[Rfam]
RNA sequence: UUUGUGGGGAAUGUUGGCUGGCUCGAGGCAUCCGCGUCCUGGCUUGCAGAUCGUUUUGCCUGCUACCGGACAGAUCGAGAGGCGUCGGACCAGGCUUCAUUCCUCGCAAA
Numbered sequence: 001u002u003u004g005u006g007g008g009g010a011a012u013g014u015u016g017g018c019u020g021g022c023u024c025g026a027g028g029c030a031u032c033c034g035c036g037u038c039c040u041g042g043c044u045u046g047c048a049g050a051u052c053g054u055u056u057u058g059c060c061u062g063c064u065a066c067c068g069g070a071c072a073g074a075u076c077g078a079g080a081g082g083c084g085u086c087g088g089a090c091c092a093g094g095c096u097u098c099a100u101u102c103c104u105c106g107c108a109a110a
Stems, first nucleotide, its partner, number of pairs: 001110013016095001018093004024087003

Shown here is a 110-nucleotide sequence from Miscanthus lutarioriparius, a member of the family "mir-166 microRNA precursor family".
Gene Ontology terms of the family: RISC complex and miRNA-mediated post-transcriptional gene silencing.
NCBI's taxonomy places the organism under Eukaryota, Streptophyta, Mesangiospermae, Petrosaviidae, Miscanthus.
For this family Rfam cites "microRNAs: tiny regulators with great potential" (Ambros, Cell, 2001).
From the family's description: This family represents the plant microRNA (miRNA) precursor mir-166.
The family has 31 seed sequences and 2,599 matches in Rfam 15.1.